[Rfam]
RNA: Plastid-psbA-3 3UTR RNA
Organism: Olea europaea
RNA sequence: AAAGGAGCAAUAACGCCCUCUUGAUAGAACAGGAAAGAGUUUAUUGCUCCCAUUAUU
Dot-bracket structure: (..(((((((((((....(((((......)))))....).))))))))))..)....